[Rfam]
This 137-nucleotide RNA sequence from Synaphobranchus kaupii belongs to the Rfam family "Small nucleolar RNA SNORA29". Its Rfam clan is "SNORA20 clan". A search with the family's covariance model found it, with a score of 84 bits. Rfam 15.1 lists 960 matches to the family in 621 species. Rfam describes the family as follows. ACA29 is a member of the H/ACA class of snoRNA that guide the sites of modification of uridines to pseudouridines. A reference for the family is Huttenhofer et al. (2001), "RNomics: an experimental approach that identifies 201 candidates for novel, small, non-messenger RNAs in mouse", EMBO J. Pairs were carried over by alignment from the consensus structure, which was predicted with PFOLD. Its family is annotated with nucleolus and RNA processing in the Gene Ontology. NCBI's taxonomy places the organism under Eukaryota, Craniata, Neopterygii, Elopomorpha, Synaphobranchus.
RNA sequence: CUUCCCAUUUUAGUACCAUACAUUCCAUUCACCACGAAUGUGUGGCUAUGCUAAUGGGAGAGAGAAACCCUGCCAUAGUCUGAAGGAGAGAUUGGCUAUGUCCACCUGUCCUAUAUGAAAUGGCAGUACAUCGCUAA
Numbered sequence: 001c002u003u004c005c006c007a008u009u010u011u012a013g014u015a016c017c018a019u020a021c022a023u024u025c026c027a028u029u030c031a032c033c034a035c036g037a038a039u040g041u042g043u044g045g046c047u048a049u050g051c052u053a054a055u056g057g058g059a060g061a062g063a064g065a066a067a068c069c070c071u072g073c074c075a076u077a078g079u080c081u082g083a084a085g086g087a088g089a090g091a092u093u094g095g096c097u098a099u100g101u102c103c104a105c106c107u108g109u110c111c112u113a114u115a116u117g118a119a120a121u122g123g124c125a126g127u128a129c130a131u132c133g134c135u136a137a
Stems, first nucleotide, its partner, number of pairs: 004058004016045004072124004089112002